[Rfam]
RNA: azaaromatic riboswitch aptamer (yjdF RNA)
RNA sequence: CCUAAGGAAAGUAAAAACACGAUUCGGUUGGUAGUCCGAAUGUAUAAUUAUUAACUUUAUAUCAGUAACCUUCCUCCUAGGAUGUCCAUCUUUCCUAAUAAAUUU
Numbered sequence: 001c002c003u004a005a006g007g008a009a010a011g012u013a014a015a016a017a018c019a020c021g022a023u024u025c026g027g028u029u030g031g032u033a034g035u036c037c038g039a040a041u042g043u044a045u046a047a048u049u050a051u052u053a054a055c056u057u058u059a060u061a062u063c064a065g066u067a068a069c070c071u072u073c074c075u076c077c078u079a080g081g082a083u084g085u086c087c088a089u090c091u092u093u094c095c096u097a098a099u100a101a102a103u104u105u
Stems, first nucleotide, its partner, number of pairs: 005096007022041006042062006072082004